[Rfam]
RNA sequence: UUGCAAUGAUGUAGAUGUAACUGAACUGACAUUGCCGACCUCUGGGUCAUCUCUGGCCAGGUAAUGACCUCUGUUAAUCUUCUCUCUGAGCAG
Numbered sequence: 001u002u003g004c005a006a007u008g009a010u011g012u013a014g015a016u017g018u019a020a021c022u023g024a025a026c027u028g029a030c031a032u033u034g035c036c037g038a039c040c041u042c043u044g045g046g047u048c049a050u051c052u053c054u055g056g057c058c059a060g061g062u063a064a065u066g067a068c069c070u071c072u073g074u075u076a077a078u079c080u081u082c083u084c085u086c087u088g089a090g091c092a093g
Base pairs, nucleotide, nucleotide: 001092003091004090034051037048